[Rfam]
This 97-nucleotide sequence from Callorhinus ursinus belongs to the Rfam family "mir-544 microRNA precursor family". The source organism's lineage runs through Eukaryota, Eumetazoa, Sarcopterygii, Caniformia and Callorhinus. Pairs were carried over by alignment from the consensus structure, which was predicted with RNAalifold. The literature on the family includes a 2010 paper in Genes Dev by Chiang et al., "Mammalian microRNAs: experimental evaluation of novel and previously annotated genes".

RNA sequence: AGCCCCCAGGGAUGUUGUUAAAAUGCAGAUUCUGACUCAGUAGUCUGGGAUGGAGCCUGAGAUUCUGCAUUUCUAACAAGUUCCCAGGUGAUGCCAG
Numbered sequence: 001a002g003c004c005c006c007c008a009g010g011g012a013u014g015u016u017g018u019u020a021a022a023a024u025g026c027a028g029a030u031u032c033u034g035a036c037u038c039a040g041u042a043g044u045c046u047g048g049g050a051u052g053g054a055g056c057c058u059g060a061g062a063u064u065c066u067g068c069a070u071u072u073c074u075a076a077c078a079a080g081u082u083c084c085c086a087g088g089u090g091a092u093g094c095c096a097g
Base pairs, nucleotide, nucleotide: 003090005088009084010083011082015079016078017077018076019075020074021072022071023070025068026067027066028065029064031062032061033060